Pseudomonas sRNA P26: a 62-nucleotide RNA from Winslowiella iniecta.
A reference for the family is Livny et al. (2006), "Identification of 17 Pseudomonas aeruginosa sRNAs and prediction of sRNA-encoding genes in 10 diverse pathogens using the bioinformatic tool sRNAPredict2", Nucleic Acids Res.
The base pairs follow the family's consensus structure, which was predicted with RNAalifold.
From the family's description: This small RNA (sRNA) was computationally identified in the genome of the opportunistic pathogen Pseudomonas aeruginosa and its expression verified by northern blot analysis. P26 is conserved across many Gammaproteobacteria species and appears to be consistently located between the DNA directed RNA polymerase (beta subunit) and 50S ribosomal protein L7/L12 genes.
Lineage of the source: Bacteria > Pseudomonadota > Enterobacterales > Erwiniaceae > Winslowiella.
It scores 66 bits against the family's covariance model.
RNA sequence: GCCUUAAUGGUUGCAGCCUGAUCCGUCAGGCUGAUGGCUGGUGACUUUUUGGUCACCAGCCU
Number, nucleotide and partner (000 for none) at each position: 001g000002c000003c000004u000005u000006a000007a000008u000009g000010g000011u000012u000013g000014c033015a032016g031017c030018c029019u000020g000021a000022u000023c000024c000025g000026u000027c000028a000029g018030g017031c016032u015033g014034a000035u000036g061037g060038c059039u058040g057041g056042u055043g054044a053045c052046u000047u000048u000049u000050u000051g000052g045053u044054c043055a042056c041057c040058a039059g038060c037061c036062u000